[Rfam]
RNA: Small nucleolar RNA R38
RNA sequence: CCGAGUCCAUGAUGAUGUAAAGUUAUCCCUGUCUGAAGGCAAAGAGGCCUUCAGUGUGGAAUUUGGAUGUCUGAGACUCCG
Numbered sequence: 001c002c003g004a005g006u007c008c009a010u011g012a013u014g015a016u017g018u019a020a021a022g023u024u025a026u027c028c029c030u031g032u033c034u035g036a037a038g039g040c041a042a043a044g045a046g047g048c049c050u051u052c053a054g055u056g057u058g059g060a061a062u063u064u065g066g067a068u069g070u071c072u073g074a075g076a077c078u079c080c081g
Stems, first nucleotide, its partner, number of pairs: 001081001003079005